[Rfam]
RNA sequence: GCCUUUGCAUCCGGCGCACCCAAUGCCUAUAUCUGAUCUGUCCUUCGGGACUAUGGACAUAAACGCGCUCGUAAUAAGCGGAUCGGACCCGGGGGCGGUACCCGGCGGCUCCACCAACAGCCCUGUCGUUUGCAGGCAGAGGGGGCCGAAACAGGAUCGACGAACGUCUAAAGGGGUUAGCUUUGUCUCGGCUGGGUGCCACCGUUAUCGGCCUAAAUUGUACAGUUGCAAACGACAACCGUGCUCCGGUGGCCGUUGCUGCGUAAGCAGUAACAACACCGAAACUUAAGUCCUUGCGCCUAGCAGCGUAAGGCGGGGUUCGCAGGCACCUGGCAACAGAAGCCUGCACA
Dot-bracket structure: .......................................((((....))))...(((((.....((((((........((..(((...(((((.......)))))(((((((.............................)))))))............))).)).......))))..))..)))))[[[...((.(((.]]].....))))).....................................................................................................[[[[..((((((]]]]..........))))))...
The family of this 350-nucleotide RNA sequence from Dinoroseobacter shibae is "Alphaproteobacteria transfer-messenger RNA". Taxonomically the source falls in Dinoroseobacter shibae (Bacteria, Pseudomonadati, Pseudomonadota, Roseobacteraceae). Gene Ontology term of the family: RNA catabolic process. Rfam describes the family as follows. Bacterial tmRNA, also known as 10Sa RNA or SsrA, is named for its dual tRNA and mRNA-like properties. Its role is to liberate the mRNA from a stalled ribosome. To accomplish this part of the tmRNA is used as a reading frame that ends in a translation stop signal. The broken mRNA is replaced in the ribosome by the tmRNA and translation of the tmRNA leads to addition of a proteolysis tag to the incomplete protein enabling recognition by a protease. The family's consensus secondary structure is taken from published work.